[Rfam]
The record is a 177-nucleotide RNA from Oryza meridionalis, which matches "MIR807 microRNA precursor family" in Rfam.
On this family, see Luo et al., FEBS Lett 2006: "Rice embryogenic calli express a unique set of microRNAs, suggesting regulatory roles of microRNAs in plant post-embryogenic development".
Gene Ontology terms of the family: miRNA-mediated post-transcriptional gene silencing and RISC complex.
The organism belongs to Oryza, within Eukaryota.
RNA sequence: AACCACACUAUCGAUGAUGGAUUCACCCGUGUGAUGACGUAGUUAUUCCAUCUAGGAUGAUGACGUGGCAUAUCCUAUUAAUUUCAUGCGAUGGCUGGUAAUAGAAUGCCACGUUCUCGUCCUAUGUGAACCAGCCACGUCAUCUUGCGGGUGAAUCCAUUCAUUAAUAGUGUAGUU
Numbered sequence: 001a002a003c004c005a006c007a008c009u010a011u012c013g014a015u016g017a018u019g020g021a022u023u024c025a026c027c028c029g030u031g032u033g034a035u036g037a038c039g040u041a042g043u044u045a046u047u048c049c050a051u052c053u054a055g056g057a058u059g060a061u062g063a064c065g066u067g068g069c070a071u072a073u074c075c076u077a078u079u080a081a082u083u084u085c086a087u088g089c090g091a092u093g094g095c096u097g098g099u100a101a102u103a104g105a106a107u108g109c110c111a112c113g114u115u116c117u118c119g120u121c122c123u124a125u126g127u128g129a130a131c132c133a134g135c136c137a138c139g140u141c142a143u144c145u146u147g148c149g150g151g152u153g154a155a156u157c158c159a160u161u162c163a164u165u166a167a168u169a170g171u172g173u174a175g176u177u
Base pairs, nucleotide, nucleotide: 001177002176003175005173006172007171009169010168011167013165014164015163016161017160018159020157021156022155023154024153025152026151027150029148030147031146034143035142036141037140038139040137042135043134044133047130050127051126053124054123056121057120062115063114064113068109069108070107073106075104076103077102078101079100080099087098
The family's consensus secondary structure was predicted with WAR.